[Rfam]
RNA: MIR8643 microRNA precursor family
RNA sequence: AACAUAUCAAGAAGCCGAAUUGGCAGUGAAGAAAUAAGUAGGAAGUUGAAAACCAUCAUUGCCUAUAACAAAAACCCAUAAACCCAUACCAUGCUUUUUUCUUCACUGCCAAUUCAGCUUCCUGAUAUGUUGAAAGAAAU
Numbered sequence: 001a002a003c004a005u006a007u008c009a010a011g012a013a014g015c016c017g018a019a020u021u022g023g024c025a026g027u028g029a030a031g032a033a034a035u036a037a038g039u040a041g042g043a044a045g046u047u048g049a050a051a052a053c054c055a056u057c058a059u060u061g062c063c064u065a066u067a068a069c070a071a072a073a074a075c076c077c078a079u080a081a082a083c084c085c086a087u088a089c090c091a092u093g094c095u096u097u098u099u100u101c102u103u104c105a106c107u108g109c110c111a112a113u114u115c116a117g118c119u120u121c122c123u124g125a126u127a128u129g130u131u132g133a134a135a136g137a138a139a140u
Stems, first nucleotide, its partner, number of pairs: 001131009011121005017115006024108011036096002039093002042090001047086002